Background
The family of this 84-nucleotide RNA from Gorilla gorilla is "mir-548 microRNA precursor family". Taxonomically the source falls in Gorilla gorilla (Eukaryota, Eumetazoa, Dipnotetrapodomorpha, Tetrapoda). Rfam 15.1 lists 3,009 matches to the family in 27 species. Gene Ontology terms of the family: RISC complex and miRNA-mediated post-transcriptional gene silencing. The base pairs follow the family's consensus structure, which was predicted with WAR.
[Rfam]
RNA sequence: AUUUAAGUUGGUGCAAGAGUAGUUGCAGUUUUUGCCAUUGAAAGUAAUGGCAAAAACUGCAACUACUCUUGCACCAACCUAACA
Numbered sequence: 001a002u003u004u005a006a007g008u009u010g011g012u013g014c015a016a017g018a019g020u021a022g023u024u025g026c027a028g029u030u031u032u033u034g035c036c037a038u039u040g041a042a043a044g045u046a047a048u049g050g051c052a053a054a055a056a057c058u059g060c061a062a063c064u065a066c067u068c069u070u071g072c073a074c075c076a077a078c079c080u081a082a083c084a
Stems, first nucleotide, its partner, number of pairs: 003082003007078034